[Rfam]
Nucleotides: 141
Base pairs, nucleotide, nucleotide: 021044022043023042024041025040053090054089055088057082058081059080060079061078062077067072099115100114101113102112103111104110120132
Number, partner (000 for none) and nucleotide at each position: 001000c002000c003000g004000u005000c006000g007000g008000u009000a010000u011000c012000c013000a014000a015000u016000c017000c018000g019000a020000c021044c022043c023042g024041g025040c026000u027000a028000a029000c030000u031000u032000u033000c034000g035000c036000u037000c038000c039000a040025g041024c042023c043022g044021g045000a046000a047000g048000c049000a050000c051000u052000u053090g054089g055088g056000g057082c058081g059080g060079u061078c062077c063000a064000g065000g066000a067072g068000g069000u070000a071000a072067c073000a074000a075000a076000u077062g078061g079060g080059c081058u082057g083000a084000a085000g086000c087000a088055c089054u090053c091000c092000g093000a094000g095000a096000a097000a098000a099115g100114g101113c102112c103111u104110c105000u106000u107000c108000a109000g110104g111103a112102g113101g114100u115099c116000a117000g118000u119000g120132g121000a122000c123000c124000c125000u126000g127000c128000g129000g130000g131000c132120c133000g134000c135000a136000a137000c138000g139000u140000g141000a

Source information
A member of the RNA family "Group II catalytic intron D1-D4-4" from Acidithiobacillus ferrianus, 141 nucleotides long. Gene Ontology term of the family: Group II intron splicing. Taxonomically the source falls in Acidithiobacillus (Bacteria, Pseudomonadati, Acidithiobacillales, Acidithiobacillaceae). The family has 90 seed sequences and 840 matches in Rfam 15.1. On this family, see Chu et al., EMBO J 2001: "Control of branch-site choice by a group II intron". A search with the family's covariance model found it, with a score of 75 bits. Group II introns are found in rRNA, tRNA and mRNA of organelles in fungi, plants and protists, and also in mRNA in bacteria.